[Rfam]
Record summary: Purine riboswitch aptamer: a 96-nucleotide RNA from bacterium 1XD42-8.
RNA sequence: CUUUUUUUAGAGUAUAAGUUAUGUAUAUACUGGGAAUCGGCCCAGUGUUUCUACCAGUUCCCGUAAGAGCUGACUACAUAGGUUCUAUGUAGUCAG
Numbered sequence: 001c002u003u004u005u006u007u008u009a010g011a012g013u014a015u016a017a018g019u020u021a022u023g024u025a026u027a028u029a030c031u032g033g034g035a036a037u038c039g040g041c042c043c044a045g046u047g048u049u050u051c052u053a054c055c056a057g058u059u060c061c062c063g064u065a066a067g068a069g070c071u072g073a074c075u076a077c078a079u080a081g082g083u084u085c086u087a088u089g090u091a092g093u094c095a096g
Base pairs, nucleotide, nucleotide: 019081020080021079022078023077024076025075030045031044032043033042034041055072056071057070058069059068060067
Notes:
The base pairs follow the family's consensus structure, which is taken from published work.